[Rfam]
RNA: c-sis internal ribosome entry site (IRES)
RNA sequence: CGGAGCAGCCGCAGCUCGAAACCCGCAGAGGAAGCCCAGAGUGGCGAGCGAGUGGGUAGAUAGACAGACUGACCCGAGCCGCGUCCACCUGUCGGCCCGGACCAGCCCAGCGCGCAGUGGCGCGCCGCGCUCUCGGAGCAGCCGUGCCCGCCGCUUGGGCCCCUGGCCAGGGCGCACACGCUCCCGCCCCGCCACCCGGCCCGGGCGGGAGUUUGCACCUCUCCCUGCCCGGGUGUUCGGGCCGCCGCUGCAAAGCCAACUUUGGAAAAAGUUUUUUUUUGGAGACUUGGGCUUGGAGGUCCCCAGCUCUGCGCUUUCUGAUUUGGGGGUCCGUUCCAGAAAAUGUUGCAAAAAAGCUAAGCCAGCAGGCAGAGGAACACGCCUUUAGCGGGCGAGUGAAGACGAACCAUAGGCUGCCGUGUUCCUUUUCCUCUCUGAGGUUGGAGUCCCCUGCGCGCCCCCACACGGCUAGACGCCUUGGCUGGUUCGCGACGCAGCCCCCAGACUGUGGAUGCUCGCGUGGGCUCGGGAUCCGCCCAGGUAGCGGCUUUGGACCCCGGUCCCUUGUCCAGGUCCUCCCCAGCCCCCCAGCGACGGAGCCGGGGC
Number, nucleotide and partner (000 for none) at each position: 001c000002g257003g256004a000005g251006c250007a249008g248009c247010c000011g245012c244013a000014g242015c241016u240017c239018g238019a000020a237021a236022c235023c000024c000025g224026c000027a222028g221029a220030g219031g218032a000033a000034g173035c172036c171037c170038a000039g168040a000041g167042u166043g000044g164045c000046g162047a000048g160049c159050g000051a000052g106053u105054g103055g102056g000057u100058a000059g000060a000061u000062a000063g096064a000065c095066a000067g093068a092069c091070u000071g089072a000073c000074c000075c083076g082077a000078g000079c000080c000081g000082c076083g075084u000085c000086c000087a000088c000089c071090u000091g069092u068093c067094g000095g065096c063097c000098c000099g000100g057101a000102c055103c054104a000105g053106c052107c000108c000109a000110g000111c157112g156113c000114g154115c153116a000117g151118u150119g149120g148121c146122g145123c144124g143125c136126c135127g134128c000129g000130c000131u000132c000133u000134c127135g126136g125137a000138g000139c000140a000141g000142c000143c124144g123145u122146g121147c000148c120149c119150g118151c117152c000153g115154c114155u000156u112157g111158g000159g049160c048161c000162c046163c000164u044165g000166g042167c041168c039169a000170g037171g036172g035173c034174g000175c000176a000177c215178a214179c000180g212181c211182u210183c209184c208185c207186g206187c205188c204189c203190c000191g000192c198193c000194a000195c000196c000197c000198g192199g000200c000201c000202c000203g189204g188205g187206c186207g185208g184209g183210a182211g181212u180213u000214u178215g177216c000217a000218c031219c030220u029221c028222u027223c000224c025225c000226u000227g000228c000229c000230c000231g000232g000233g000234u000235g022236u021237u020238c018239g017240g016241g015242c014243c000244g012245c011246c000247g009248c008249u007250g006251c005252a000253a000254a000255g000256c003257c002258a000259a272260c271261u270262u269263u268264g000265g000266a000267a000268a263269a262270a261271g260272u259273u000274u000275u000276u000277u000278u582279u000280u000281g579282g578283a577284g576285a574286c573287u572288u571289g570290g569291g568292c567293u000294u000295g000296g000297a000298g000299g519300u518301c000302c000303c000304c000305a000306g515307c514308u512309c511310u510311g509312c508313g507314c000315u000316u000317u000318c000319u504320g000321a000322u000323u000324u000325g000326g502327g501328g500329g499330u000331c497332c000333g000334u000335u000336c000337c000338a000339g000340a000341a000342a000343a000344u000345g000346u000347u000348g357349c356350a000351a000352a000353a000354a000355a000356g349357c348358u000359a000360a000361g393362c392363c391364a000365g389366c388367a000368g000369g386370c000371a384372g383373a000374g380375g000376a000377a000378c000379a000380c374381g000382c000383c372384u371385u000386u369387a000388g366389c365390g000391g363392g362393c361394g000395a000396g495397u494398g493399a000400a000401g490402a000403c489404g488405a487406a486407c485408c484409a483410u481411a000412g479413g478414c472415u471416g469417c468418c467419g466420u465421g464422u463423u445424c444425c443426u000427u440428u439429u438430c437431c000432u000433c000434u000435c000436u000437g430438a429439g428440g427441u000442u000443g425444g424445a423446g456447u455448c000449c453450c000451c000452u000453g449454c000455g447456c446457g000458c000459c000460c000461c000462c000463a422464c421465a420466c419467g418468g417469c416470u000471a415472g414473a000474c000475g000476c000477c000478u413479u412480g000481g410482c000483u409484g408485g407486u406487u405488c404489g403490c401491g000492a000493c398494g397495c396496a000497g331498c000499c329500c328501c327502c326503a000504g319505a000506c000507u313508g312509u311510g310511g309512a308513u000514g307515c306516u000517c000518g300519c299520g000521u000522g563523g562524g561525c560526u000527c000528g557529g556530g555531a000532u554533c553534c552535g551536c000537c000538c000539a550540g549541g548542u547543a000544g000545c000546g000547g542548c541549u540550u539551u535552g534553g533554a532555c530556c529557c528558c000559g000560g525561u524562c523563c522564c000565u000566u000567g292568u291569c290570c289571a288572g287573g286574u285575c000576c284577u283578c282579c281580c000581c000582a278583g000584c000585c000586c605587c604588c603589c602590a000591g600592c599593g000594a000595c000596g000597g000598a000599g592600c591601c000602g589603g588604g587605g586606c000